[Rfam]
RNA sequence: CUCUAAUGAUGACUCUAGUUUUGUGCCACGUGUCUGGGCCACUGAACACUCGUGAUGGGUUUGAGGAACUGAAAGAG
Numbered sequence: 001c002u003c004u005a006a007u008g009a010u011g012a013c014u015c016u017a018g019u020u021u022u023g024u025g026c027c028a029c030g031u032g033u034c035u036g037g038g039c040c041a042c043u044g045a046a047c048a049c050u051c052g053u054g055a056u057g058g059g060u061u062u063g064a065g066g067a068a069c070u071g072a073a074a075g076a077g
Stems, first nucleotide, its partner, number of pairs: 001077004
Rfam assigns this 77-nucleotide RNA sequence from Nothobranchius furzeri to the family "Small nucleolar RNA SNORD66".
Rfam's curators write: snoRNA HBII-142 is part of the C/D family of snoRNAs.
Taxonomically the source falls in Nothobranchius (Eukaryota, Neopterygii, Osteoglossocephalai, Nothobranchiidae).
For this family Rfam cites "RNomics: an experimental approach that identifies 201 candidates for novel, small, non-messenger RNAs in mouse" (Huttenhofer et al., EMBO J, 2001).
The family's consensus secondary structure was predicted with RNAalifold.
The family's RNA type in Rfam is C/D-box small nucleolar RNA.
It scores 83 bits against the family's covariance model.